[Rfam]
Nucleotides: 062
Base pairs, nucleotide, nucleotide: 001060002059003058004057005056009049010048011047012046013045022044023043024042030037031036
Number, partner (000 for none) and nucleotide at each position: 001060c002059c003058u004057u005056u006000g007000g008000a009049g010048a011047g012046u013045c014000a015000u016000a017000u018000c019000a020000a021000a022044c023043g024042a025000a026000a027000g028000u029000a030037g031036c032000u033000a034000c035000g036031g037030u038000a039000a040000a041000a042024u043023c044022g045013g046012a047011u048010u049009c050000u051000g052000c053000g054000a055000a056005g057004a058003a059002g060001g061000a062000a